Background: This 133-nucleotide RNA sequence from Bacillus sp. B-jedd belongs to the Rfam family "FMN riboswitch aptamer (RFN element)". About the family: The RFN element is a highly conserved domain that is found frequently in the 5'-untranslated regions of prokaryotic mRNAs that encode for flavin mononucleotide (FMN) biosynthesis and transport proteins. The organism belongs to Bacillus, within Bacteria. Pairs were carried over by alignment from the consensus structure, which is taken from published work.
RNA sequence: GUCUAUCUUCGGGGCUGGGUGAAAUUCCCGACCGGCGGUAAUAAGCUUUUGCUUUAAGCCCGCGAGCCGCAAUUUGGCAGGAUUUGGUGCGAUUCCAAAGCCGACAGUAUAGUCUGGAUGGGAGAAGAUGGAG
Number, nucleotide and partner (000 for none) at each position: 001g000002u000003c131004u130005a129006u128007c127008u126009u125010c124011g000012g000013g000014g000015c000016u000017g029018g028019g027020u000021g000022a000023a000024a000025u000026u000027c019028c018029c017030g000031a113032c112033c103034g102035g063036c062037g061038g060039u000040a000041a000042u000043a000044a000045g000046c000047u000048u000049u000050u000051g000052c000053u000054u000055u000056a000057a000058g101059c100060c038061c037062g036063c035064g000065a000066g000067c000068c077069g000070c000071a000072a000073u000074u000075u000076g000077g068078c000079a000080g000081g000082a000083u099084u098085u097086g096087g095088u000089g000090c000091g000092a000093u000094u000095c087096c086097a085098a084099a083100g059101c058102c034103g033104a000105c116106a115107g114108u000109a000110u000111a000112g032113u031114c107115u106116g105117g000118a000119u000120g000121g000122g000123a000124g010125a009126a008127g007128a006129u005130g004131g003132a000133g000